[Rfam]
RNA sequence: AACAUGCUCCCUUAGAUCCAUCUUUGUUUGAUAGCUCUUACACUGAGUUCUACUUAAAGCUUUGGCUACUUAGUAGUUCCAGUUAAGAGAAAUCAGCAACUUUAUGGUUGUACAGUCAAAGAUGCUUGAGUCAUUGGCAUGUGAGAAUAAUAUACCUUCACUCUAGUCUGUUACGUUCUGAUAGAAAUGGCUGUACUGUCAUUUUCUACUAUCAGGAUUUGACUGGAAUGUGGACAUC
Numbered sequence: 001a002a003c004a005u006g007c008u009c010c011c012u013u014a015g016a017u018c019c020a021u022c023u024u025u026g027u028u029u030g031a032u033a034g035c036u037c038u039u040a041c042a043c044u045g046a047g048u049u050c051u052a053c054u055u056a057a058a059g060c061u062u063u064g065g066c067u068a069c070u071u072a073g074u075a076g077u078u079c080c081a082g083u084u085a086a087g088a089g090a091a092a093u094c095a096g097c098a099a100c101u102u103u104a105u106g107g108u109u110g111u112a113c114a115g116u117c118a119a120a121g122a123u124g125c126u127u128g129a130g131u132c133a134u135u136g137g138c139a140u141g142u143g144a145g146a147a148u149a150a151u152a153u154a155c156c157u158u159c160a161c162u163c164u165a166g167u168c169u170g171u172u173a174c175g176u177u178c179u180g181a182u183a184g185a186a187a188u189g190g191c192u193g194u195a196c197u198g199u200c201a202u203u204u205u206c207u208a209c210u211a212u213c214a215g216g217a218u219u220u221g222a223c224u225g226g227a228a229u230g231u232g233g234a235c236a237u238c
Stems, first nucleotide, its partner, number of pairs: 002142007011130005019124008029095004036088004042083004047079001050076004056070001058067003096111006156233002159230002163226001165224004177216008188208003
Shown here is a 238-nucleotide sequence from Varanus komodoensis, a member of the family "Small nucleolar RNA SNORA53". The family has 28 seed sequences and 1,090 matches in Rfam 15.1. The match comes from Rfam's covariance-model search (190 bits). By type it is an H/ACA-box small nucleolar RNA. Rfam describes the family as follows. The snoRNA ACA53 belongs to the H/ACA family of pseudouridylation guide snoRNAs. The source organism's lineage runs through Eukaryota, Craniata, Gnathostomata, Toxicofera and Varanus. Its family is annotated with RNA processing and nucleolus in the Gene Ontology.